[Rfam]
RNA sequence: UAGGUUUGUCCUAAGUCAAACAUGGCUAACUUUGACCAAAUCUAUAGAAAAAUAGAGCAACAACAAUACUAACCAACCUAUGGACUAUCAAUAUAUAUUUCAUGGUGAAUUCAAUGCAACAAAUUUGGUUCUGUACAUGUUAUUAUUUUUUUCUAUAAAUUUGGUCAAAGUUGGACAAGUUUGACUUAGGACAAACCUAA
Numbered sequence: 001u002a003g004g005u006u007u008g009u010c011c012u013a014a015g016u017c018a019a020a021c022a023u024g025g026c027u028a029a030c031u032u033u034g035a036c037c038a039a040a041u042c043u044a045u046a047g048a049a050a051a052a053u054a055g056a057g058c059a060a061c062a063a064c065a066a067u068a069c070u071a072a073c074c075a076a077c078c079u080a081u082g083g084a085c086u087a088u089c090a091a092u093a094u095a096u097a098u099u100u101c102a103u104g105g106u107g108a109a110u111u112c113a114a115u116g117c118a119a120c121a122a123a124u125u126u127g128g129u130u131c132u133g134u135a136c137a138u139g140u141u142a143u144u145a146u147u148u149u150u151u152u153c154u155a156u157a158a159a160u161u162u163g164g165u166c167a168a169a170g171u172u173g174g175a176c177a178a179g180u181u182u183g184a185c186u187u188a189g190g191a192c193a194a195a196c197c198u199a200a
Stems, first nucleotide, its partner, number of pairs: 005195005011189011023177002026174001031169005043155002046152005053145003056141004063134003069127001071125002
RNA: MIR1435 microRNA precursor family
Organism: Panicum hallii